The record is a 164-nucleotide RNA sequence from Vibrio genomosp. F6, which matches "Molybdenum/Tungsten riboswitch aptamer (Moco RNA motif)" in Rfam. NCBI's taxonomy places the organism under Bacteria, Pseudomonadota, Gammaproteobacteria, Vibrio, Vibrio genomosp. F6.

[Rfam]
RNA sequence: GCUGCCAUAACUCCGAGCUCUAAUGGCUAAGUUAUAAAUGCACAUCCGUUAAUCGUAAAGUGUUUUUAUGAUAAGCCACUUGAGCCAGUGACAUGUUGUCACAAGGGCUGAAUUGGAAAUGAUUCUGCCUCCCGUAUUUGGAAAGGUGUUCCGUGGCACAACAA
Numbered sequence: 001g002c003u004g005c006c007a008u009a010a011c012u013c014c015g016a017g018c019u020c021u022a023a024u025g026g027c028u029a030a031g032u033u034a035u036a037a038a039u040g041c042a043c044a045u046c047c048g049u050u051a052a053u054c055g056u057a058a059a060g061u062g063u064u065u066u067u068a069u070g071a072u073a074a075g076c077c078a079c080u081u082g083a084g085c086c087a088g089u090g091a092c093a094u095g096u097u098g099u100c101a102c103a104a105g106g107g108c109u110g111a112a113u114u115g116g117a118a119a120u121g122a123u124u125c126u127g128c129c130u131c132c133c134g135u136a137u138u139u140g141g142a143a144a145g146g147u148g149u150u151c152c153g154u155g156g157c158a159c160a161a162c163a164a
Base pairs, nucleotide, nucleotide: 003158004157009150010149011148013146014145017085018084019083020082022080024078025077026076027075031072032071033070034069035068036067037066038065088102089101090100091099092098105130106129107128108127110125111124112123113122114121115120131141132140